[Rfam]
RNA sequence: UUGUUGGCACUCAAGCCCACUGUCCAGGUUCCUUUCUUCACGGGGGCCCAGUGUGUAAUGGCUGCAAACCUCAGCCUCCUUGAGAAUGUAUGCAGCCUGUUGCAUAUGUGGGCUGCCCUAAGGAACCCUGGAGACAGUU
Numbered sequence: 001u002u003g004u005u006g007g008c009a010c011u012c013a014a015g016c017c018c019a020c021u022g023u024c025c026a027g028g029u030u031c032c033u034u035u036c037u038u039c040a041c042g043g044g045g046g047c048c049c050a051g052u053g054u055g056u057a058a059u060g061g062c063u064g065c066a067a068a069c070c071u072c073a074g075c076c077u078c079c080u081u082g083a084g085a086a087u088g089u090a091u092g093c094a095g096c097c098u099g100u101u102g103c104a105u106a107u108g109u110g111g112g113c114u115g116c117c118c119u120a121a122g123g124a125a126c127c128c129u130g131g132a133g134a135c136a137g138u139u
Base pairs, nucleotide, nucleotide: 002057003056004055019052020051021050022049029046030045031044032043082127093115094114095113096112097111098110